Rfam assigns this 117-nucleotide RNA from Pseudogracilibacillus auburnensis to the family "SAM riboswitch aptamer (S box leader)". It scores 86 bits against the family's covariance model.

RNA sequence: CUCUUAUCAAGAGCGACGGAGGGAAUAGGCCCGAUGAAGUCCAGCAACCUUAAAGUAUAAUCGUAUGCUUUUUACGGUGCCAAAUCCUACAGGCGAGGCUCGCCUGGAAGAUAAGAG
Numbered sequence: 001c002u003c004u005u006a007u008c009a010a011g012a013g014c015g016a017c018g019g020a021g022g023g024a025a026u027a028g029g030c031c032c033g034a035u036g037a038a039g040u041c042c043a044g045c046a047a048c049c050u051u052a053a054a055g056u057a058u059a060a061u062c063g064u065a066u067g068c069u070u071u072u073u074a075c076g077g078u079g080c081c082a083a084a085u086c087c088u089a090c091a092g093g094c095g096a097g098g099c100u101c102g103c104c105u106g107g108a109a110g111a112u113a114a115g116a117g
Stems, first nucleotide, its partner, number of pairs: 001117008013042001015041003021032003026089004044080003048077002052071006085109001090106006